Annotation: The family of this 94-nucleotide RNA is "TPP riboswitch aptamer (THI element)". Its family is annotated with thiamine pyrophosphate binding in the Gene Ontology. A search with the family's covariance model found it, with a score of 59 bits.
RNA sequence: UGAAACUUGCAGGGGUGGCCUUUGGCCUGAGAUGAUACCCAUUGAACCUGAACUGGCUCGCACCAGCGUAGGGAAUUGCAGGAAGUGACCUUCU
Numbered sequence: 001u002g003a004a005a006c007u008u009g010c011a012g013g014g015g016u017g018g019c020c021u022u023u024g025g026c027c028u029g030a031g032a033u034g035a036u037a038c039c040c041a042u043u044g045a046a047c048c049u050g051a052a053c054u055g056g057c058u059c060g061c062a063c064c065a066g067c068g069u070a071g072g073g074a075a076u077u078g079c080a081g082g083a084a085g086u087g088a089c090c091u092u093c094u
Stems, first nucleotide, its partner, number of pairs: 006082005012040003016035001017027004047072004053066004